[Rfam]
RNA sequence: CUUUGUUAUGAUGAUUGCCUAAUAUGUUCAACUGCUCUGAUGUGUGAAGAAAAUGUGCCUUUCUGAACAGGC
Numbered sequence: 001c002u003u004u005g006u007u008a009u010g011a012u013g014a015u016u017g018c019c020u021a022a023u024a025u026g027u028u029c030a031a032c033u034g035c036u037c038u039g040a041u042g043u044g045u046g047a048a049g050a051a052a053a054u055g056u057g058c059c060u061u062u063c064u065g066a067a068c069a070g071g072c
Stems, first nucleotide, its partner, number of pairs: 002071005
A member of the RNA family "Small nucleolar RNA Z40" from Neogobius melanostomus, 72 nucleotides long. Lineage of the source: Eukaryota > Craniata > Vertebrata > Ctenosquamata > Neogobius. The family has 5 seed sequences and 615 matches in Rfam 15.1. Pairs were carried over by alignment from the consensus structure, which was predicted with PFOLD. A search with the family's covariance model found it, with a score of 51 bits.